[Rfam]
RNA sequence: GGUUAAUUAGUCUGCUUAUCUGAAUAUGUUUCUGUAGAAAUUUAGUAAAAGAUGGAAAUAGUGAUGCCAUGUUAUGAGCCUUAAGGAAAACUGAGGUUGUUAAGGUCCCUGAAAAAAGCUACAGUA
Numbered sequence: 001g002g003u004u005a006a007u008u009a010g011u012c013u014g015c016u017u018a019u020c021u022g023a024a025u026a027u028g029u030u031u032c033u034g035u036a037g038a039a040a041u042u043u044a045g046u047a048a049a050a051g052a053u054g055g056a057a058a059u060a061g062u063g064a065u066g067c068c069a070u071g072u073u074a075u076g077a078g079c080c081u082u083a084a085g086g087a088a089a090a091c092u093g094a095g096g097u098u099g100u101u102a103a104g105g106u107c108c109c110u111g112a113a114a115a116a117a118g119c120u121a122c123a124g125u126a
Stems, first nucleotide, its partner, number of pairs: 001053001011038005066119002078106007086098002
RNA: Small nucleolar RNA SNORA33